The record is a 365-nucleotide RNA sequence from Scardovia wiggsiae, which matches "Bacterial RNase P class A" in Rfam. From the family's description: Ribonuclease P (RNase P) is a ubiquitous endoribonuclease, found in archaea, bacteria and eukarya as well as chloroplasts and mitochondria. The source organism's lineage runs through Bacteria, Bacillati, Bifidobacteriales, Scardovia and Scardovia wiggsiae. The family's RNA type in Rfam is ribozyme.

RNA sequence: UGAGACCUCUUUGUGGUUGCGGUACUGUUUUACAGUACUGAGGAACUUCCGGGCUCCACAGAGCACAAUGGCGGAUAACGUCCGCCCAGGGCGACCUGAGAGAUAGCGCAACAGAAAGCAGACCGCCCCCAUACCCCGGUAUGGGAGUAAGGGUGAAACGGCGGUGUAAGAGACCACCGGAUCUGCGGUAACGCAGACCGCACGGCAAGCCUCAUUGGGAGCAAGGCCAAGCAGAAGGCAUAUGGGCUGCUCGCUCACGUCUUCGGGUAGGCUGCUGGAGCUUAGCGGCAACGUUAAGUCGAGAUGGAUAACCACACGUAUGCUUUGCAUAACGACAGAACCCGGGGUAUAAGAGGUCUCACUUU
Numbered sequence: 001u002g003a004g005a006c007c008u009c010u011u012u013g014u015g016g017u018u019g020c021g022g023u024a025c026u027g028u029u030u031u032a033c034a035g036u037a038c039u040g041a042g043g044a045a046c047u048u049c050c051g052g053g054c055u056c057c058a059c060a061g062a063g064c065a066c067a068a069u070g071g072c073g074g075a076u077a078a079c080g081u082c083c084g085c086c087c088a089g090g091g092c093g094a095c096c097u098g099a100g101a102g103a104u105a106g107c108g109c110a111a112c113a114g115a116a117a118g119c120a121g122a123c124c125g126c127c128c129c130c131a132u133a134c135c136c137c138g139g140u141a142u143g144g145g146a147g148u149a150a151g152g153g154u155g156a157a158a159c160g161g162c163g164g165u166g167u168a169a170g171a172g173a174c175c176a177c178c179g180g181a182u183c184u185g186c187g188g189u190a191a192c193g194c195a196g197a198c199c200g201c202a203c204g205g206c207a208a209g210c211c212u213c214a215u216u217g218g219g220a221g222c223a224a225g226g227c228c229a230a231g232c233a234g235a236a237g238g239c240a241u242a243u244g245g246g247c248u249g250c251u252c253g254c255u256c257a258c259g260u261c262u263u264c265g266g267g268u269a270g271g272c273u274g275c276u277g278g279a280g281c282u283u284a285g286c287g288g289c290a291a292c293g294u295u296a297a298g299u300c301g302a303g304a305u306g307g308a309u310a311a312c313c314a315c316a317c318g319u320a321u322g323c324u325u326u327g328c329a330u331a332a333c334g335a336c337a338g339a340a341c342c343c344g345g346g347g348u349a350u351a352a353g354a355g356g357u358c359u360c361a362c363u364u365u
Stems, first nucleotide, its partner, number of pairs: 001361010012316007020040009045348003049345005054221004061252004066217005071085005086100001087098004101212002106210002108206002123152002125148002128145006160178002163175003179201001180199001182197006225273004234264006243257005280299008